[Rfam]
RNA: mir-203 microRNA precursor family
Organism: Aquarana catesbeiana
RNA sequence: GCCUUCCUGAUCAAGUGGUCCUAAACAUUUCACAAUUUCGAUAGAGAACUGUUGAACUGUUAAGAACCACUGAGCCAGGC
Numbered sequence: 001g002c003c004u005u006c007c008u009g010a011u012c013a014a015g016u017g018g019u020c021c022u023a024a025a026c027a028u029u030u031c032a033c034a035a036u037u038u039c040g041a042u043a044g045a046g047a048a049c050u051g052u053u054g055a056a057c058u059g060u061u062a063a064g065a066a067c068c069a070c071u072g073a074g075c076c077a078g079g080c
Stems, first nucleotide, its partner, number of pairs: 014071006021064002024061004029056004